[Rfam]
RNA sequence: UGAUUUUGCCCCUUCGCUGGAACCCUUCCCAAACACUUGCUAUAGGUCAAUUACCCCUGCCGAAACAUGGCAUAACAACAGGCAACCGGUGGUUGCUAUAACGCAUGCGCACAGGGAGACACAUCGCAAUGCACCC
Numbered sequence: 001u002g003a004u005u006u007u008g009c010c011c012c013u014u015c016g017c018u019g020g021a022a023c024c025c026u027u028c029c030c031a032a033a034c035a036c037u038u039g040c041u042a043u044a045g046g047u048c049a050a051u052u053a054c055c056c057c058u059g060c061c062g063a064a065a066c067a068u069g070g071c072a073u074a075a076c077a078a079c080a081g082g083c084a085a086c087c088g089g090u091g092g093u094u095g096c097u098a099u100a101a102c103g104c105a106u107g108c109g110c111a112c113a114g115g116g117a118g119a120c121a122c123a124u125c126g127c128a129a130u131g132c133a134c135c136c
Base pairs, nucleotide, nucleotide: 013116014115015114019029020028021027034109036107038105039104040103058072059071060070061069062068081097082096083095084094085093086092
The family of this 136-nucleotide RNA from Enterobacter roggenkampii is "opuB ncRNA motif". Rfam's curators put it in the seed alignment. Rfam describes the family as follows. opuB ncRNA motif was reported as a strong cis regulatory motif candidate, with potential to be a cis regulatory riboswitch type, it have been identified in mostly from species of Enterobacteriaceae. The motif have been recognised mostly downstream-adjacent gene, opuB, annotated as coding for a proline/glycine ABC-transporter, whereas other related genes are known to be relevant to the transport of compatible solutes such as glycine, betaine, and choline of an uncharacterized ABC transporter with strong homology to amino acid transporters.